[Rfam]
RNA sequence: UGUCGGGUUGGGCAAACCGGGCGAAAGCCCGGGACGCUAAAGCCAUGGGUCUACGGUCCGGAAGGGCUAUGAUCGCCAGGCUGAAACG
Numbered sequence: 001u002g003u004c005g006g007g008u009u010g011g012g013c014a015a016a017c018c019g020g021g022c023g024a025a026a027g028c029c030c031g032g033g034a035c036g037c038u039a040a041a042g043c044c045a046u047g048g049g050u051c052u053a054c055g056g057u058c059c060g061g062a063a064g065g066g067c068u069a070u071g072a073u074c075g076c077c078a079g080g081c082u083g084a085a086a087c088g
Stems, first nucleotide, its partner, number of pairs: 012037002017032006041082004046078003049073003056067004
A member of the RNA family "c-di-GMP-I riboswitch aptamer" from Desulfofundulus thermobenzoicus, 88 nucleotides long. The organism belongs to Desulfofundulus, within Bacteria. A search with the family's covariance model found it, with a score of 65 bits. The family's consensus secondary structure is taken from published work.